Shown here is a 243-nucleotide RNA sequence from Bacillus sp. OK048, a member of the family "T-box leader".
The family's consensus secondary structure is taken from published work.
On this family, see Gerdeman et al., J Mol Biol 2003: "Solution structure of the Bacillus subtilis T-box antiterminator RNA: seven nucleotide bulge characterized by stacking and flexibility".
It is annotated as a cis-regulatory leader.
Rfam describes the family as follows. Uncharged tRNA acts as the effector for transcription antitermination of genes in the T-box leader family. T-boxes are found upstream of many aminoacyl-tRNA synthetase genes and some amino acid biosynthetic genes usually in Gram-positive bacteria. The anticodon of a specific tRNA base pairs to a specifier sequence within the T-box motif, and the NCCA acceptor tail of the tRNA base pairs to a conserved bulge in the T-box antiterminator hairpin.

[Rfam]
RNA sequence: UAGUUGGCAAUGACAAAGAGUAGUACGUAUUUUUAUCCGGUUCAGAGAGUUUGUGGUUGGUGGAAACAAACACGGAAAAAUACCGAAUGGACUUUCGAGCUUCUUUUCCGAAUUUCUAUGAAAUGUAGGAAAAGACGUUACCUUGCGUUAAAAGGGUCCUGAGGCUAUUCAAUCAAGAUAUUCAGGAAAUGAGUGACUCUUUUGAGUAAUUUAGGGUGGUACCGCGAACCAUUCGUCCCUAUC
Numbered sequence: 001u002a003g004u005u006g007g008c009a010a011u012g013a014c015a016a017a018g019a020g021u022a023g024u025a026c027g028u029a030u031u032u033u034u035a036u037c038c039g040g041u042u043c044a045g046a047g048a049g050u051u052u053g054u055g056g057u058u059g060g061u062g063g064a065a066a067c068a069a070a071c072a073c074g075g076a077a078a079a080a081u082a083c084c085g086a087a088u089g090g091a092c093u094u095u096c097g098a099g100c101u102u103c104u105u106u107u108c109c110g111a112a113u114u115u116c117u118a119u120g121a122a123a124u125g126u127a128g129g130a131a132a133a134g135a136c137g138u139u140a141c142c143u144u145g146c147g148u149u150a151a152a153a154g155g156g157u158c159c160u161g162a163g164g165c166u167a168u169u170c171a172a173u174c175a176a177g178a179u180a181u182u183c184a185g186g187a188a189a190u191g192a193g194u195g196a197c198u199c200u201u202u203u204g205a206g207u208a209a210u211u212u213a214g215g216g217u218g219g220u221a222c223c224g225c226g227a228a229c230c231a232u233u234c235g236u237c238c239c240u241a242u243c
Stems, first nucleotide, its partner, number of pairs: 007100002015095004027083005038074002049071006103134007136147003196207004213240004224236005